A member of the RNA family "mir-568 microRNA precursor family" from Dipodomys ordii, 91 nucleotides long. Its family is annotated with RISC complex and miRNA-mediated post-transcriptional gene silencing in the Gene Ontology. The organism belongs to Dipodomys, within Eukaryota. A search with the family's covariance model found it, with a score of 86 bits.

RNA sequence: AUAUACACUCUAUUAUGUAUAAAUGUAUACACACUUGCUAUAUAUAGCCACAUAUAUAGUGUAUAUAUUAUACAUAUAUAGGUGUGUUGUA
Number, nucleotide and partner (000 for none) at each position: 001a000002u000003a085004u084005a083006c082007a000008c081009u080010c000011u078012a077013u076014u000015a075016u074017g073018u072019a071020u070021a069022a068023a000024u067025g066026u065027a064028u063029a062030c061031a060032c059033a000034c000035u000036u000037g000038c000039u056040a055041u054042a053043u052044a000045u050046a000047g000048c000049c000050a045051c000052a043053u042054a041055u040056a039057u000058a000059g032060u031061g030062u029063a028064u027065a026066u025067a024068u022069u021070a020071u019072a018073c017074a016075u015076a013077u012078a011079u000080a009081g008082g006083u005084g004085u003086g000087u000088u000089g000090u000091a000